Rfam assigns this 82-nucleotide sequence from Anaerotruncus massiliensis to the family "c-di-GMP-I riboswitch aptamer". It scores 74 bits against the family's covariance model. Pairs were carried over by alignment from the consensus structure, which is taken from published work.
RNA sequence: AUGAAUAUUUGGCAAAACUAUUGAAAAAUAGUGACGCAAAGCCAUGGGUCUAAACCGUAGGGUAUGACAGCCGGUUGCCGCA
Numbered sequence: 001a002u003g004a005a006u007a008u009u010u011g012g013c014a015a016a017a018c019u020a021u022u023g024a025a026a027a028a029u030a031g032u033g034a035c036g037c038a039a040a041g042c043c044a045u046g047g048g049u050c051u052a053a054a055c056c057g058u059a060g061g062g063u064a065u066g067a068c069a070g071c072c073g074g075u076u077g078c079c080g081c082a
Base pairs, nucleotide, nucleotide: 012037013036017032018031019030020029021028022027040076041075042074043073046072047071048068049067050066055062056061